[Rfam]
RNA sequence: GGCGUGCGCCUGUAAUCCAGUUACUUGGAGGCUUGGGUUGGAGGACGGUGUGAGAUUGGGAGCUCUGUGGCGCUCUGUCCUAUGUCGAUCGGGCGUCCGCGCUAAGCUCGGCGUCAAUAUGGGCAUUCCAGGGGAGCCCGGAGUGGCCAGGUUGUCCAAGGAGGAACGCACCGGGCGAGGCCCGAAAGGGAGCAGCCAAAAGUUCCCACGUUGAUCAGUAGCGGGAUAGCGCCUGUGAAUAGGCGGAGCGUUGCAGCCCAGUCAAUAUCGCGGGACCCAAUCCUUU
Numbered sequence: 001g002g003c004g005u006g007c008g009c010c011u012g013u014a015a016u017c018c019a020g021u022u023a024c025u026u027g028g029a030g031g032c033u034u035g036g037g038u039u040g041g042a043g044g045a046c047g048g049u050g051u052g053a054g055a056u057u058g059g060g061a062g063c064u065c066u067g068u069g070g071c072g073c074u075c076u077g078u079c080c081u082a083u084g085u086c087g088a089u090c091g092g093g094c095g096u097c098c099g100c101g102c103u104a105a106g107c108u109c110g111g112c113g114u115c116a117a118u119a120u121g122g123g124c125a126u127u128c129c130a131g132g133g134g135a136g137c138c139c140g141g142a143g144u145g146g147c148c149a150g151g152u153u154g155u156c157c158a159a160g161g162a163g164g165a166a167c168g169c170a171c172c173g174g175g176c177g178a179g180g181c182c183c184g185a186a187a188g189g190g191a192g193c194a195g196c197c198a199a200a201a202g203u204u205c206c207c208a209c210g211u212u213g214a215u216c217a218g219u220a221g222c223g224g225g226a227u228a229g230c231g232c233c234u235g236u237g238a239a240u241a242g243g244c245g246g247a248g249c250g251u252u253g254c255a256g257c258c259c260a261g262u263c264a265a266u267a268u269c270g271c272g273g274g275a276c277c278c279a280a281u282c283c284u285u286u
Base pairs, nucleotide, nucleotide: 016029017028018027035283036282037281038280039279040278041277046273048271049270050269054263055262056261057260058259059258060257065256066255067254068253069252070251071250072249076245077244079243080242081241082240083239085237090235091234092233093232094231095230096229097225098224100223101222102221103220104219106216108214109213110212111211112210113209114208115154116153117152118151120149121148122147124145125144126143127142128141129140131138132137155161156160163207164206166203167202174197175196176195181190182189183188
The family of this 286-nucleotide RNA from Ciona savignyi is "Metazoan signal recognition particle RNA". For this family Rfam cites "Towards the structure of the mammalian signal recognition particle" (Wild et al., Curr Opin Struct Biol, 2002). It is one of the family's seed sequences.